[Rfam]
RNA: Plastid-ycf2 5UTR RNA
RNA sequence: AAGAUCUAGCAGGAAUUGAACCCGCAAAUUUACCAAUUAUGAGUUGGACGCUUUAACCAUUUAGCCAUGGAUGC
Number, nucleotide and partner (000 for none) at each position: 001a000002a000003g000004a072005u071006c070007u069008a000009g025010c024011a000012g022013g021014a000015a000016u000017u000018g000019a000020a000021c013022c012023c000024g010025c009026a000027a000028a000029u000030u000031u000032a000033c000034c000035a000036a000037u000038u000039a068040u067041g066042a000043g065044u064045u063046g062047g061048a060049c000050g058051c000052u000053u000054u000055a000056a000057c000058c050059a000060u048061u047062u046063a045064g044065c043066c041067a040068u039069g007070g006071a005072u004073g000074c000